This 152-nucleotide RNA from Exiguobacterium chiriqhucha belongs to the Rfam family "glmS glucosamine-6-phosphate activated ribozyme aptamer".
RNA sequence: AUGAAGGGAAAAGCGCCAGAACUCUUCGGAGUUGACGAGGUUGGGGGUUAUCGAGUUUUCGGCGGAUGCCUCCUAGUCGCCUGUCACGACUACAAGUGUUCUUUUAAAACGUUCGGGUGACCGGACGGACAACGAGGAACACGUUGACAGCA
Numbered sequence: 001a002u003g004a005a006g007g008g009a010a011a012a013g014c015g016c017c018a019g020a021a022c023u024c025u026u027c028g029g030a031g032u033u034g035a036c037g038a039g040g041u042u043g044g045g046g047g048u049u050a051u052c053g054a055g056u057u058u059u060c061g062g063c064g065g066a067u068g069c070c071u072c073c074u075a076g077u078c079g080c081c082u083g084u085c086a087c088g089a090c091u092a093c094a095a096g097u098g099u100u101c102u103u104u105u106a107a108a109a110c111g112u113u114c115g116g117g118u119g120a121c122c123g124g125a126c127g128g129a130c131a132a133c134g135a136g137g138a139a140c141a142c143g144u145u146g147a148c149a150g151c152a
Stems, first nucleotide, its partner, number of pairs: 020033005043073005051062004074092006096142007110127007
NCBI's taxonomy places the organism under Bacteria, Bacillota, Bacilli, Caryophanales, Exiguobacterium chiriqhucha.